[Rfam]
RNA sequence: CCUCUUUCGCAGAAGGCGCUUCGGCCCUAUAUGUUUUCCUGUCGGGGCGACCCGGCUAUGGUGAUAAACGGACGCCGCAAUAAACCCUUCGGACCCGGGGGCAGCACCCGGCGCCUCCACCAAAAUCCGCGAUCGUUGGGCGGAUUUCGGCGGGGGCGAAACAGGAUCGACGGGGGCGUAAAGGGCGGACUUUCACCCGGUAUUGUUCCGCCGUUAUCGGGCUUUUCUAUAGUUGCCAACGACAACUAUGCUCCGGUUGCUCAGGCCGCGUGAGCGGUUUGAAAAACCAAACCUGAAGUCCUGAUGGUGUAGCAGCUAUCGGGCGGGGCCCGGAGGCGCCUGGCAACAGAAGCCUCCACU
Numbered sequence: 001c002c003u004c005u006u007u008c009g010c011a012g013a014a015g016g017c018g019c020u021u022c023g024g025c026c027c028u029a030u031a032u033g034u035u036u037u038c039c040u041g042u043c044g045g046g047g048c049g050a051c052c053c054g055g056c057u058a059u060g061g062u063g064a065u066a067a068a069c070g071g072a073c074g075c076c077g078c079a080a081u082a083a084a085c086c087c088u089u090c091g092g093a094c095c096c097g098g099g100g101g102c103a104g105c106a107c108c109c110g111g112c113g114c115c116u117c118c119a120c121c122a123a124a125a126u127c128c129g130c131g132a133u134c135g136u137u138g139g140g141c142g143g144a145u146u147u148c149g150g151c152g153g154g155g156g157c158g159a160a161a162c163a164g165g166a167u168c169g170a171c172g173g174g175g176g177c178g179u180a181a182a183g184g185g186c187g188g189a190c191u192u193u194c195a196c197c198c199g200g201u202a203u204u205g206u207u208c209c210g211c212c213g214u215u216a217u218c219g220g221g222c223u224u225u226u227c228u229a230u231a232g233u234u235g236c237c238a239a240c241g242a243c244a245a246c247u248a249u250g251c252u253c254c255g256g257u258u259g260c261u262c263a264g265g266c267c268g269c270g271u272g273a274g275c276g277g278u279u280u281g282a283a284a285a286a287c288c289a290a291a292c293c294u295g296a297a298g299u300c301c302u303g304a305u306g307g308u309g310u311a312g313c314a315g316c317u318a319u320c321g322g323g324c325g326g327g328g329c330c331c332g333g334a335g336g337c338g339c340c341u342g343g344c345a346a347c348a349g350a351a352g353c354c355u356c357c358a359c360u
Stems, first nucleotide, its partner, number of pairs: 041056005060197005070190001073187004085176003089173003095111005112158007198213004205222001207221003326341004332357006
Alphaproteobacteria transfer-messenger RNA: a 360-nucleotide RNA sequence from Hansschlegelia zhihuaiae. The match comes from Rfam's covariance-model search (286 bits). NCBI's taxonomy places the organism under Bacteria, Pseudomonadati, Pseudomonadota, Methylopilaceae, Hansschlegelia. Clan: tRNA clan. The base pairs follow the family's consensus structure, which is taken from published work. Bacterial tmRNA, also known as 10Sa RNA or SsrA, is named for its dual tRNA and mRNA-like properties. Its role is to liberate the mRNA from a stalled ribosome.